[Rfam]
The record is a 124-nucleotide RNA sequence from Brassica oleracea, which matches "MIR9563 microRNA precursor family" in Rfam. A search with the family's covariance model found it, with a score of 93 bits. Its family is annotated with RISC complex and miRNA-mediated post-transcriptional gene silencing in the Gene Ontology. The family's consensus secondary structure was predicted with RNAalifold. Rfam 15.1 lists 5,832 matches to the family in 9 species.
RNA sequence: GGAAUAUAAGAACUCGUGUCUUAACUUUUAACUAAAAAAGUUAAAAACCGACUCUUAAAACUUUUAUUUAAAAACCAGUUUUUAGUUUUUUUAUUUAAAAGUUAAGAGACGGUUCUUAUAUUCU
Numbered sequence: 001g002g003a004a005u006a007u008a009a010g011a012a013c014u015c016g017u018g019u020c021u022u023a024a025c026u027u028u029u030a031a032c033u034a035a036a037a038a039a040g041u042u043a044a045a046a047a048c049c050g051a052c053u054c055u056u057a058a059a060a061c062u063u064u065u066a067u068u069u070a071a072a073a074a075c076c077a078g079u080u081u082u083u084a085g086u087u088u089u090u091u092u093a094u095u096u097a098a099a100a101g102u103u104a105a106g107a108g109a110c111g112g113u114u115c116u117u118a119u120a121u122u123c124u
Stems, first nucleotide, its partner, number of pairs: 001124013015111003019107013033093007041085007
Dot-bracket structure: (((((((((((((.(((.(((((((((((((.(((((((.(((((((...............................))))))).))))))).))))))))))))).))))))))))))))))